[Rfam]
RNA sequence: GUCAGUCCCGCUUAUGCGGUGGCCAUUCAGGGUAAGUGUGUCCCGAAGGGACACCGCCGCCGCAGUUCUCCCAAGAGGAGAACGGGCGGGACAGGAGGC
Numbered sequence: 001g002u003c004a005g006u007c008c009c010g011c012u013u014a015u016g017c018g019g020u021g022g023c024c025a026u027u028c029a030g031g032g033u034a035a036g037u038g039u040g041u042c043c044c045g046a047a048g049g050g051a052c053a054c055c056g057c058c059g060c061c062g063c064a065g066u067u068c069u070c071c072c073a074a075g076a077g078g079a080g081a082a083c084g085g086g087c088g089g090g091a092c093a094g095g096a097g098g099c
Base pairs, nucleotide, nucleotide: 005092006091007090008089009088010087011086012085013084015064016063017062018061019060020059021058022057023056036055038054039053041051042050043049066082068080069079070078071077
RNA: DUF1874 RNA